[Rfam]
RNA sequence: AAUGAAUAAAUACCCCGAGCCCGCCGUCCUGCGGGAGCUUGCGUUCCUAUGGCGGCCGGGCCAUUGGGUGCCGUUUGGAAACGGCGGCGCCUCCCGUCCGGAAAGGGGAAAAGGCUCGUCGGAA
Numbered sequence: 001a002a003u004g005a006a007u008a009a010a011u012a013c014c015c016c017g018a019g020c021c022c023g024c025c026g027u028c029c030u031g032c033g034g035g036a037g038c039u040u041g042c043g044u045u046c047c048u049a050u051g052g053c054g055g056c057c058g059g060g061c062c063a064u065u066g067g068g069u070g071c072c073g074u075u076u077g078g079a080a081a082c083g084g085c086g087g088c089g090c091c092u093c094c095c096g097u098c099c100g101g102a103a104a105g106g107g108g109a110a111a112a113g114g115c116u117c118g119u120c121g122g123a124a
Stems, first nucleotide, its partner, number of pairs: 003118002011110001013108004019061005025055001028052002033048006066092008075084003093101002

Source information:
Shown here is a 124-nucleotide RNA from Cloacibacillus sp. An23, a member of the family "Molybdenum/Tungsten riboswitch aptamer (Moco RNA motif)". The organism belongs to Cloacibacillus, within Bacteria.